Shown here is a 107-nucleotide sequence from Roseivivax halotolerans, a member of the family "L2-Alphaproteobacteria ribosomal protein leader". Taxonomically the source falls in Roseivivax (Bacteria, Pseudomonadati, Alphaproteobacteria, Roseobacteraceae). On this family, see Eckert and Weinberg, BMC Microbiol 2020: "Discovery of 20 novel ribosomal leader candidates in bacteria and archaea". The base pairs follow the family's consensus structure, which is taken from published work.
RNA sequence: GGGCACCUACGGGGGCCUACAUCCGACGGAUGGCACGCGCCAUCCCGACACAUAGGCGGGGCGCGCCCAAGAGGGGCAAGCCGCGCUGCACAUACGGAAGACAGAAA
Numbered sequence: 001g002g003g004c005a006c007c008u009a010c011g012g013g014g015g016c017c018u019a020c021a022u023c024c025g026a027c028g029g030a031u032g033g034c035a036c037g038c039g040c041c042a043u044c045c046c047g048a049c050a051c052a053u054a055g056g057c058g059g060g061g062c063g064c065g066c067c068c069a070a071g072a073g074g075g076g077c078a079a080g081c082c083g084c085g086c087u088g089c090a091c092a093u094a095c096g097g098a099a100g101a102c103a104g105a106a107a
Stems, first nucleotide, its partner, number of pairs: 001018004006014003028082002031079001033077002